[Rfam]
RNA sequence: GUUAUGUUGGCAAUGGGUUUUCACCGUGAUCAGCAGAGAGUUAGCCAUUUUUCUGAGAUCAUUGUGAAAGCCAAUUGCCUUGAAUAG
Numbered sequence: 001g002u003u004a005u006g007u008u009g010g011c012a013a014u015g016g017g018u019u020u021u022c023a024c025c026g027u028g029a030u031c032a033g034c035a036g037a038g039a040g041u042u043a044g045c046c047a048u049u050u051u052u053c054u055g056a057g058a059u060c061a062u063u064g065u066g067a068a069a070g071c072c073a074a075u076u077g078c079c080u081u082g083a084a085u086a087g
Base pairs, nucleotide, nucleotide: 009079010078011077012076016072017071018070019069020068021067022066023065024064027061028060029059030058031057035054036053037052038050039049

This 87-nucleotide RNA from Caenorhabditis angaria belongs to the Rfam family "mir-81 microRNA precursor family". NCBI's taxonomy places the organism under Eukaryota, Opisthokonta, Bilateria, Peloderinae, Caenorhabditis. The base pairs follow the family's consensus structure, which was predicted with RNAalifold.